[Rfam]
RNA: c-di-GMP-I-GGC riboswitch aptamer
Organism: Syntrophotalea acetylenivorans
RNA sequence: UCCGAAAAGAGCAAACCCGUAGUAAUGCGGGGACGCAAAACCAUGGAUCCUUCAUCAAAGGACUGCCAGGUUGCCGAAG
Numbered sequence: 001u002c003c004g005a006a007a008a009g010a011g012c013a014a015a016c017c018c019g020u021a022g023u024a025a026u027g028c029g030g031g032g033a034c035g036c037a038a039a040a041c042c043a044u045g046g047a048u049c050c051u052u053c054a055u056c057a058a059a060g061g062a063c064u065g066c067c068a069g070g071u072u073g074c075c076g077a078a079g
Stems, first nucleotide, its partner, number of pairs: 001079001003076002011036002016031006034065001039072004044068003048062002